[Rfam]
RNA sequence: GUUGCAAAUUCAAGGCUACAGCAGAAGUACUCAUGGCAUGGCCCUGUCAGAUUCUAACAAAUCUACAAAUUCUGCU
Numbered sequence: 001g002u003u004g005c006a007a008a009u010u011c012a013a014g015g016c017u018a019c020a021g022c023a024g025a026a027g028u029a030c031u032c033a034u035g036g037c038a039u040g041g042c043c044c045u046g047u048c049a050g051a052u053u054c055u056a057a058c059a060a061a062u063c064u065a066c067a068a069a070u071u072c073u074g075c076u
Stems, first nucleotide, its partner, number of pairs: 014043004020076007027039002049064005

The family of this 76-nucleotide RNA sequence from Alligator mississippiensis is "Mammalian CPEB3 ribozyme". A search with the family's covariance model found it, with a score of 42 bits. The family has 14 seed sequences and 5,706 matches in Rfam 15.1. The base pairs follow the family's consensus structure, which is taken from published work.